[Rfam]
RNA sequence: UCCGUGAUGACUCGGAAUCUGAAGGAAGUCCAAGGCAAAUCCUCGGUCUGAGGUAUACGAAUCACAUUUGAGGUUCCUAGCUUGGGACGGGUUUGCAAAACAAAACUAAGUCCGAAAUAUCCCCGCACAAACUAGGGAUAAAUGUGGCAGAUAUACGAGGUGAAAGUGAAUGAAC
Numbered sequence: 001u002c003c004g005u006g007a008u009g010a011c012u013c014g015g016a017a018u019c020u021g022a023a024g025g026a027a028g029u030c031c032a033a034g035g036c037a038a039a040u041c042c043u044c045g046g047u048c049u050g051a052g053g054u055a056u057a058c059g060a061a062u063c064a065c066a067u068u069u070g071a072g073g074u075u076c077c078u079a080g081c082u083u084g085g086g087a088c089g090g091g092u093u094u095g096c097a098a099a100a101c102a103a104a105a106c107u108a109a110g111u112c113c114g115a116a117a118u119a120u121c122c123c124c125g126c127a128c129a130a131a132c133u134a135g136g137g138a139u140a141a142a143u144g145u146g147g148c149a150g151a152u153a154u155a156c157g158a159g160g161u162g163a164a165a166g167u168g169a170a171u172g173a174a175c
Base pairs, nucleotide, nucleotide: 001016002015003014004013006011028175029174031172032171035167036166041160042159043158044157045156046152047151048150049149050148062147063146064145065144066143067142073139074138075137077135078134079133080132082130083129085113086112087111088110091106092105093104094103
A member of the RNA family "Group II catalytic intron D1-D4-3" from Bacillus sp. V5-8f, 175 nucleotides long.